Overview:
A member of the RNA family "Eukaryotic large subunit ribosomal RNA" from Thyridium curvatum, 280 nucleotides of a longer RNA. The family is grouped with related families in Rfam's "LSU clan".
RNA sequence: GAGUCAAGCAUUAGUGCGAGUGUUUGGGUGUAAAACCCGCACGCGUAAUGAAAGUGAACGUAGGUGAGAGCUUCGGCGCAUCAUCGACCGAUCCUGAUGUUCUCGGAUGGAUUUGAGUAAGAGCAUUAACGCUUGGACCCGAAAGAUGGUGAACUAUGCUUGGAUAGGGUGAAGCCAGAGGAAACUCUGGUGGAGGCUCGCAGCGGUUCUGACGUGCAAAUCGAUCGUCAAAUCUGAGCAUGGGGGCGAAAGACUAAUCGAACCAUCUAGUAGCUGGUUA
Numbered sequence: 001g002a003g004u005c006a007a008g009c010a011u012u013a014g015u016g017c018g019a020g021u022g023u024u025u026g027g028g029u030g031u032a033a034a035a036c037c038c039g040c041a042c043g044c045g046u047a048a049u050g051a052a053a054g055u056g057a058a059c060g061u062a063g064g065u066g067a068g069a070g071c072u073u074c075g076g077c078g079c080a081u082c083a084u085c086g087a088c089c090g091a092u093c094c095u096g097a098u099g100u101u102c103u104c105g106g107a108u109g110g111a112u113u114u115g116a117g118u119a120a121g122a123g124c125a126u127u128a129a130c131g132c133u134u135g136g137a138c139c140c141g142a143a144a145g146a147u148g149g150u151g152a153a154c155u156a157u158g159c160u161u162g163g164a165u166a167g168g169g170u171g172a173a174g175c176c177a178g179a180g181g182a183a184a185c186u187c188u189g190g191u192g193g194a195g196g197c198u199c200g201c202a203g204c205g206g207u208u209c210u211g212a213c214g215u216g217c218a219a220a221u222c223g224a225u226c227g228u229c230a231a232a233u234c235u236g237a238g239c240a241u242g243g244g245g246g247c248g249a250a251a252g253a254c255u256a257a258u259c260g261a262a263c264c265a266u267c268u269a270g271u272a273g274c275u276g277g278u279u280a
Stems, first nucleotide, its partner, number of pairs: 005135005011129007020044003025039005048055002063085005070077002087118002089115003092111003098105002138277002141274001145267006154243011165231001167199004174191007203228004208224002211222002245255002